The record is a 79-nucleotide sequence from Pontibacillus litoralis, which matches "Glycine riboswitch aptamer" in Rfam. NCBI's taxonomy places the organism under Bacteria, Bacillati, Bacillota, Caryophanales, Pontibacillus litoralis. From the family's description: This family represents the bacterial glycine riboswitch. The pairing is the family consensus, mapped onto this sequence.

[Rfam]
RNA sequence: GGAGCAUAUUCUGGAGAGAUCGCACAUAGUGCGGCGCCGAAGGGUUCACAAUCUCAGGCAAAUGGACAGAAUCAUCUAG
Numbered sequence: 001g002g003a004g005c006a007u008a009u010u011c012u013g014g015a016g017a018g019a020u021c022g023c024a025c026a027u028a029g030u031g032c033g034g035c036g037c038c039g040a041a042g043g044g045u046u047c048a049c050a051a052u053c054u055c056a057g058g059c060a061a062a063u064g065g066a067c068a069g070a071a072u073c074a075u076c077u078a079g
Stems, first nucleotide, its partner, number of pairs: 008072006020034004036059003039055002043053003